[Rfam]
RNA: Small nucleolar RNA MBII-202
Organism: Cochlearius cochlearius
RNA sequence: GAUGAGACAUCUCCGGAAUCGCUGUACCCCCUUGAUGAUUCCCUUGAACCCAGUGUAUCUGAUGACUGUGGCUGUUGCGU
Numbered sequence: 001g002a003u004g005a006g007a008c009a010u011c012u013c014c015g016g017a018a019u020c021g022c023u024g025u026a027c028c029c030c031c032u033u034g035a036u037g038a039u040u041c042c043c044u045u046g047a048a049c050c051c052a053g054u055g056u057a058u059c060u061g062a063u064g065a066c067u068g069u070g071g072c073u074g075u076u077g078c079g080u
Stems, first nucleotide, its partner, number of pairs: 002080003006076001